The record is an 89-nucleotide sequence from Thalictrum thalictroides, which matches "MIR2275 microRNA precursor family" in Rfam. Lineage of the source: Eukaryota > Viridiplantae > Euphyllophyta > Mesangiospermae > Thalictrum. The family's consensus secondary structure was predicted with RNAalifold. Rfam links the family to the GO terms RISC complex and miRNA-mediated post-transcriptional gene silencing.

RNA sequence: AUUUCGAAUGUGAGAAUUGGAAGAAAUUGAACCCAUGGUUGCUAACUUCAUAUGUGGUUCAAUUUCCUCCAAUAUCUUACUUUCGAAUU
Dot-bracket structure: ...(((((..((((.((((((.((((((((.((......................)).)))))))).))))))..))))..)))))...
Numbered sequence: 001a002u003u004u005c006g007a008a009u010g011u012g013a014g015a016a017u018u019g020g021a022a023g024a025a026a027u028u029g030a031a032c033c034c035a036u037g038g039u040u041g042c043u044a045a046c047u048u049c050a051u052a053u054g055u056g057g058u059u060c061a062a063u064u065u066c067c068u069c070c071a072a073u074a075u076c077u078u079a080c081u082u083u084c085g086a087a088u089u
Stems, first nucleotide, its partner, number of pairs: 004086005011079004016073006023066008032057002